The family of this 81-nucleotide RNA sequence from Paenibacillus oceani is "ZMP/ZTP riboswitch aptamer (pfl RNA motif)". Pairs were carried over by alignment from the consensus structure, which is taken from published work. It scores 57 bits against the family's covariance model.
RNA sequence: ACGUGUAUGUGUAACUGGCGGAGCAUGGGGAACCAUGAGGGAGCACAUGGACGGUAACGGCCGUACGCCUGGGCAGAGGUA
Numbered sequence: 001a002c003g004u005g006u007a008u009g010u011g012u013a014a015c016u017g018g019c020g021g022a023g024c025a026u027g028g029g030g031a032a033c034c035a036u037g038a039g040g041g042a043g044c045a046c047a048u049g050g051a052c053g054g055u056a057a058c059g060g061c062c063g064u065a066c067g068c069c070u071g072g073g074c075a076g077a078g079g080u081a
Stems, first nucleotide, its partner, number of pairs: 003052002006049007015040002017069004025036004058076001060074003